A member of the RNA family "Plastid-psbA-3 3UTR RNA" from Nicotiana attenuata, 55 nucleotides long.
Rfam's curators write: Plastid psbA-3 is a non-coding RNA (ncRNA) present in plastids. It was identified in inverted repeat sequences in the 3 prime untranslate region (3UTR) of photosystem II quinone-binding protein (psbA).
Rfam classes the family as a cis-regulatory element.

RNA sequence: AAAGGCAAUAAUUACUUUCUUGUUCUAUCAGGAGGAUGUUAUUGCUCCUUUAUUU
Numbered sequence: 001a002a003a004g005g006c007a008a009u010a011a012u013u014a015c016u017u018u019c020u021u022g023u024u025c026u027a028u029c030a031g032g033a034g035g036a037u038g039u040u041a042u043u044g045c046u047c048c049u050u051u052a053u054u055u
Stems, first nucleotide, its partner, number of pairs: 001051004005045008017034006
The family's consensus secondary structure was predicted with LocARNA.